Record summary: FMN riboswitch aptamer (RFN element): a 159-nucleotide RNA sequence from Sulfitobacter sp. SK011. The family's consensus secondary structure is taken from published work.
RNA sequence: CACCAUUCUCAGGGCGGGGUGAAAUUCCCCACCGGCGGUAAGUGGUCAGUCCCACAGGAGCCCGCGAGCGCUUGUGACCUCUCUUCGAGAGGCACAGGGACAGCAGAUUUGGUGUGAACCCAGAGCCGACGGUCAUAGUCCGGAUGAAAGAGAAUGCGU
Numbered sequence: 001c002a003c004c005a006u007u008c009u010c011a012g013g014g015c016g017g018g019g020u021g022a023a024a025u026u027c028c029c030c031a032c033c034g035g036c037g038g039u040a041a042g043u044g045g046u047c048a049g050u051c052c053c054a055c056a057g058g059a060g061c062c063c064g065c066g067a068g069c070g071c072u073u074g075u076g077a078c079c080u081c082u083c084u085u086c087g088a089g090a091g092g093c094a095c096a097g098g099g100a101c102a103g104c105a106g107a108u109u110u111g112g113u114g115u116g117a118a119c120c121c122a123g124a125g126c127c128g129a130c131g132g133u134c135a136u137a138g139u140c141c142g143g144a145u146g147a148a149a150g151a152g153a154a155u156g157c158g159u
Base pairs, nucleotide, nucleotide: 004156005155006154007153008152009151010150017029018028019027031139032138033128034127035065036064037063038062060126061125068104069103108124109123110122111121112120130142131141132140